Xanthine riboswitch aptamer (NMT1 RNA): a 62-nucleotide RNA from Oleiphilus messinensis. Gene Ontology term of the family: purine nucleobase binding. A reference for the family is Yu and Breaker (2020), "A bacterial riboswitch class senses xanthine and uric acid to regulate genes associated with purine oxidation", RNA. The match comes from Rfam's covariance-model search (47 bits). The organism belongs to Oleiphilus, within Bacteria.

RNA sequence: CCACCGAGUAUAAGCGGUCAGGAAGUACCCCUCUGAAACACUUCUGGGACAUUGCUCGAAUU
Numbered sequence: 001c002c003a004c005c006g007a008g009u010a011u012a013a014g015c016g017g018u019c020a021g022g023a024a025g026u027a028c029c030c031c032u033c034u035g036a037a038a039c040a041c042u043u044c045u046g047g048g049a050c051a052u053u054g055c056u057c058g059a060a061u062u
Stems, first nucleotide, its partner, number of pairs: 005058006015047001018049002021045006